[Rfam]
RNA sequence: AACGUGCUCCGGGGUCGGUGAGAAUCCGAACCGGCGGUGACAGUCCGCGAACCCGAUGCCCAGCCCGCGAGGUCUGGGAUAUCGGGCCGAUCCGGUGGAAUUCCGGGACCGACGGUGAUGCGGCAGUCCUCCUGCGGGAGGGCUGCGCGCUAGUCCGGAUGAGAGGCAGCACGCC
Numbered sequence: 001a002a003c004g005u006g007c008u009c010c011g012g013g014g015u016c017g018g019u020g021a022g023a024a025u026c027c028g029a030a031c032c033g034g035c036g037g038u039g040a041c042a043g044u045c046c047g048c049g050a051a052c053c054c055g056a057u058g059c060c061c062a063g064c065c066c067g068c069g070a071g072g073u074c075u076g077g078g079a080u081a082u083c084g085g086g087c088c089g090a091u092c093c094g095g096u097g098g099a100a101u102u103c104c105g106g107g108a109c110c111g112a113c114g115g116u117g118a119u120g121c122g123g124c125a126g127u128c129c130u131c132c133u134g135c136g137g138g139a140g141g142g143c144u145g146c147g148c149g150c151u152a153g154u155c156c157g158g159a160u161g162a163g164a165g166g167c168a169g170c171a172c173g174c175c
Stems, first nucleotide, its partner, number of pairs: 003173006009165001016028003032111002034048004043109002052086007091107005113157003

A member of the RNA family "FMN riboswitch aptamer (RFN element)" from Microbacterium sp. No. 7, 175 nucleotides long. The match comes from Rfam's covariance-model search (67 bits). The literature on the family includes a 2002 paper in Nucleic Acids Res by Vitreschak et al., "Regulation of riboflavin biosynthesis and transport genes in bacteria by transcriptional and translational attenuation".